Notes
A member of the RNA family "Small nucleolar RNA SNORD82" from Ornithorhynchus anatinus, 72 nucleotides long.

[Rfam]
RNA sequence: AGCACAAAUGAUGAGCCUAAAGGGACUUAAUACUGAAACCUGAUGUAACUAAAUAAUAUAUGCUGAUCGUGC
Numbered sequence: 001a002g003c004a005c006a007a008a009u010g011a012u013g014a015g016c017c018u019a020a021a022g023g024g025a026c027u028u029a030a031u032a033c034u035g036a037a038a039c040c041u042g043a044u045g046u047a048a049c050u051a052a053a054u055a056a057u058a059u060a061u062g063c064u065g066a067u068c069g070u071g072c
Stems, first nucleotide, its partner, number of pairs: 002072004006067001